The family of this 139-nucleotide sequence from Atractosteus spatula is "Small nucleolar RNA SNORA79". The family's consensus secondary structure was predicted with RNAalifold. Gene Ontology terms of the family: RNA processing and nucleolus. The organism belongs to Atractosteus, within Eukaryota. Rfam's curators write: ACA65 (SNORA79) is a member of the H/ACA class of snoRNAs that guide the sites of modification of uridines to pseudouridines. Rfam 15.1 lists 944 matches to the family in 375 species. A reference for the family is Schattner et al. (2006), "A computational screen for mammalian pseudouridylation guide H/ACA RNAs", RNA.
RNA sequence: UGAUGACCGUUCCUCCUGCUGCUCUGAGUCUUGGCAAACAGGAUUUUAGGUCAUCACAGAGUAUACUAGAUCUUCUUCACUCAGGGUAUAUGAGGCAGCGGGGCUGCCUGUACACUGAAAUUUGCGGGAUCUGACAGUU
Numbered sequence: 001u002g003a004u005g006a007c008c009g010u011u012c013c014u015c016c017u018g019c020u021g022c023u024c025u026g027a028g029u030c031u032u033g034g035c036a037a038a039c040a041g042g043a044u045u046u047u048a049g050g051u052c053a054u055c056a057c058a059g060a061g062u063a064u065a066c067u068a069g070a071u072c073u074u075c076u077u078c079a080c081u082c083a084g085g086g087u088a089u090a091u092g093a094g095g096c097a098g099c100g101g102g103g104c105u106g107c108c109u110g111u112a113c114a115c116u117g118a119a120a121u122u123u124g125c126g127g128g129a130u131c132u133g134a135c136a137g138u139u
Base pairs, nucleotide, nucleotide: 001056002055003054004053005052006051007050008049014043015042016041017040018039020036021035022034023033069131070130071129072128073127074126081118082117083116084115086113087112088111089110090109094108095107096106097105